The record is a 101-nucleotide sequence from Python bivittatus, which matches "Vault RNA" in Rfam.
[Rfam]
RNA sequence: GAGCCAGCUUAGCCCAACGGUUCCUUCGCACUGACUUUCCUGUCUGCUUCAAUCGCCGCUUCCUGGCAGUUUGAGUCCCGUGGGCGCUGUCUGGCUUUUUU
Numbered sequence: 001g002a003g004c005c006a007g008c009u010u011a012g013c014c015c016a017a018c019g020g021u022u023c024c025u026u027c028g029c030a031c032u033g034a035c036u037u038u039c040c041u042g043u044c045u046g047c048u049u050c051a052a053u054c055g056c057c058g059c060u061u062c063c064u065g066g067c068a069g070u071u072u073g074a075g076u077c078c079c080g081u082g083g084g085c086g087c088u089g090u091c092u093g094g095c096u097u098u099u100u101u
Stems, first nucleotide, its partner, number of pairs: 002096006012085004017081004025075004

The family's RNA type in Rfam is non-coding RNA gene. A reference for the family is Stadler et al. (2009), "Evolution of Vault RNAs", Mol Biol Evol. From the family's description: This family of RNAs are found as part of the enigmatic vault ribonucleoprotein complex. The complex consists of a major vault protein (MVP), two minor vault proteins (VPARP and TEP1), and several small untranslated RNA molecules. It has been suggested that the vault complex is involved in drug resistance.